Shown here is a 148-nucleotide RNA sequence from Albula goreensis, a member of the family "Small nucleolar RNA SNORA49". Gene Ontology terms of the family: nucleolus and RNA processing. The organism belongs to Albula, within Eukaryota. The snoRNA ACA49 has no identified RNA target. NB genomic sequence 1-nt different from published. By type it is an H/ACA-box small nucleolar RNA. It scores 38 bits against the family's covariance model.

RNA sequence: GUUCCCCUCGCUUACUCCAGGACCUGACUACAGUUUAGAGUCCUGGCAUUGACAGGGAAAGCAGAAACCAUUCUCUCUCCCGUCUCUCACAUUCAGGUUUACUGCUUUCUGUGGGGUUCAGGAGAGGUCUUGCAGUGCUAUUCACAGU
Numbered sequence: 001g002u003u004c005c006c007c008u009c010g011c012u013u014a015c016u017c018c019a020g021g022a023c024c025u026g027a028c029u030a031c032a033g034u035u036u037a038g039a040g041u042c043c044u045g046g047c048a049u050u051g052a053c054a055g056g057g058a059a060a061g062c063a064g065a066a067a068c069c070a071u072u073c074u075c076u077c078u079c080c081c082g083u084c085u086c087u088c089a090c091a092u093u094c095a096g097g098u099u100u101a102c103u104g105c106u107u108u109c110u111g112u113g114g115g116g117u118u119c120a121g122g123a124g125a126g127g128u129c130u131u132g133c134a135g136u137g138c139u140a141u142u143c144a145c146a147g148u
Stems, first nucleotide, its partner, number of pairs: 003059001005057004011051001017046006024038004070142001072140001075137001083127006090121001